[Rfam]
RNA: Archaeal large subunit ribosomal RNA, nucleotides 1791 to 2147
Organism: Methanothermus fervidus
RNA sequence: CAGGGUAACCGGGCUAAGGGAAAUCGGCAAAUUGGCCCCGUACCUUCGGAAGAAGGGGUGCCAGCCGCGAGAAGCGGCUGGUCGCAGUGACUAGGGGGGCCCGACUGUUUAAUAAAAACAUAGCUCCCAGCUAGCCCGUAAGGGUGAGUACUGGGAGUGACACCUGCCCAGUGCCGGCACGUGAAGCCCCGGUUCAACGGGGUGAAGCGCCGGUAAACGGCGGGGGUAACUAUAACCCUCUUAAGGUAGCGAAAUGCCUUGCCGGAUAAGUACCGGCCUGCAUGAAUGGUUGAACGAGGCCCCCACUGUCCCUAGCCCGGACCUGGUGAACCCGCUUUCUGGUGCACAUGCCAGAUA
Numbered sequence: 001c002a003g004g005g006u007a008a009c010c011g012g013g014c015u016a017a018g019g020g021a022a023a024u025c026g027g028c029a030a031a032u033u034g035g036c037c038c039c040g041u042a043c044c045u046u047c048g049g050a051a052g053a054a055g056g057g058g059u060g061c062c063a064g065c066c067g068c069g070a071g072a073a074g075c076g077g078c079u080g081g082u083c084g085c086a087g088u089g090a091c092u093a094g095g096g097g098g099g100c101c102c103g104a105c106u107g108u109u110u111a112a113u114a115a116a117a118a119c120a121u122a123g124c125u126c127c128c129a130g131c132u133a134g135c136c137c138g139u140a141a142g143g144g145u146g147a148g149u150a151c152u153g154g155g156a157g158u159g160a161c162a163c164c165u166g167c168c169c170a171g172u173g174c175c176g177g178c179a180c181g182u183g184a185a186g187c188c189c190c191g192g193u194u195c196a197a198c199g200g201g202g203u204g205a206a207g208c209g210c211c212g213g214u215a216a217a218c219g220g221c222g223g224g225g226g227u228a229a230c231u232a233u234a235a236c237c238c239u240c241u242u243a244a245g246g247u248a249g250c251g252a253a254a255u256g257c258c259u260u261g262c263c264g265g266a267u268a269a270g271u272a273c274c275g276g277c278c279u280g281c282a283u284g285a286a287u288g289g290u291u292g293a294a295c296g297a298g299g300c301c302c303c304c305a306c307u308g309u310c311c312c313u314a315g316c317c318c319g320g321a322c323c324u325g326g327u328g329a330a331c332c333c334g335c336u337u338u339c340u341g342g343u344g345c346a347c348a349u350g351c352c353a354g355a356u357a
Base pairs, nucleotide, nucleotide: 001325002324003323004322009320010319011318012317013316014315015314016313018311019310020309035059036058037057038056039055044049060082061081062080063079064078065077066076067075068074083087095304096303097302098301099300100299101298102296103295106120107119108118123158124157125156126155127154128153129152130151131148134145135144136143137142162290163289164288166221167220168219171218172217173214174213175212176211177210180209181208182207187202188201189200190199191198222240223239224238225237226236227235241245261277262276263275264274265273338355339354340353341352342351